[Rfam]
Nucleotides: 097
Base pairs, nucleotide, nucleotide: 004091006089007088008087009086010085011084012083013082014081015078018076019075020074021073022072024068025067026066027065028064035060036059037058043052044051045050
Number, partner (000 for none) and nucleotide at each position: 001000a002000g003000a004091a005000u006089g007088c008087u009086c010085c011084u012083c013082c014081g015078u016000g017000g018076c019075g020074u021073u022072a023000c024068g025067u026066c027065a028064c029000c030000g031000a032000a033000u034000c035060c036059c037058c038000c039000c040000a041000g042000g043052g044051c045050a046000g047000g048000a049000a050045u051044g052043c053000a054000g055000c056000a057000a058037g059036g060035g061000u062000a063000a064028g065027u066026g067025g068024c069000c070000u071000c072022u073021g074020a075019c076018g077000g078015g079000u080000g081014c082013g083012g084011g085010g086009g087008a088007g089006u090000u091004u092000u093000c094000c095000g096000u097000a
The family of this 97-nucleotide RNA sequence from Parascardovia denticolens is "Bacterial small signal recognition particle RNA". The signal recognition particle (SRP) is a universally conserved ribonucleoprotein involved in the co-translational targeting of proteins to membranes. The match comes from Rfam's covariance-model search (59 bits). Its Rfam clan is "SRP clan". Taxonomically the source falls in Parascardovia denticolens (Bacteria, Bacillati, Actinomycetota, Bifidobacteriaceae). Rfam classes the family as a non-coding RNA gene.